[Rfam]
Nucleotides: 126
Base pairs, nucleotide, nucleotide: 001033002032003031004030009026010025011024012023013022041089042088043087044086045085046084047083048082049081050080051079052074053073054072055071056070057069058068059067060066061065091110092109093108094107095106096105097104098103111126112125113124114123115122116121
Number, partner (000 for none) and nucleotide at each position: 001033g002032a003031c004030c005000u006000a007000a008000a009026c010025c011024c012023u013022a014000c015000c016000u017000a018000a019000a020000a021000a022013u023012a024011g025010g026009g027000c028000a029000u030004g031003g032002u033001c034000g035000c036000a037000a038000a039000u040000a041089c042088u043087a044086c045085a046084u047083g048082a049081a050080u051079a052074u053073a054072g055071a056070g057069a058068u059067g060066g061065c062000u063000a064000c065061g066060c067059c068058g069057u070056c071055u072054c073053u074052g075000g076000u077000a078000u079051u080050a081049u082048u083047c084046a085045u086044g087043u088042a089041g090000u091110c092109a093108a094107c095106a096105a097104u098103c099000g100000a101000a102000a103098g104097g105096u106095u107094g108093u109092u110091g111126g112125a113124u114123c115122c116121c117000g118000a119000a120000a121116g122115g123114g124113a125112u126111c
The family of this 126-nucleotide RNA sequence is "LOOT RNA".
It is one of the family's seed sequences.